RNA sequence: GGUCCUCUUACAGCAACCAAACAAACGUAUCCUACAAAACUUAAAUGUCUGGAAUAGAUAAUGCACAUACCCAGGGGACCUG
Numbered sequence: 001g002g003u004c005c006u007c008u009u010a011c012a013g014c015a016a017c018c019a020a021a022c023a024a025a026c027g028u029a030u031c032c033u034a035c036a037a038a039a040c041u042u043a044a045a046u047g048u049c050u051g052g053a054a055u056a057g058a059u060a061a062u063g064c065a066c067a068u069a070c071c072c073a074g075g076g077g078a079c080c081u082g
Base pairs, nucleotide, nucleotide: 001080002079003078004077005076006075007074008073
This 82-nucleotide sequence from Acytostelium subglobosum belongs to the Rfam family "Class I RNA from Dictyostelium". The source organism's lineage runs through Eukaryota, Eumycetozoa, Dictyostelia, Acytosteliaceae and Acytostelium subglobosum. Dictyostelium Class I RNA was first reported for Aspegren et al. 2004 in Dictyostelium discoideum. Rfam's curators put it in the seed alignment.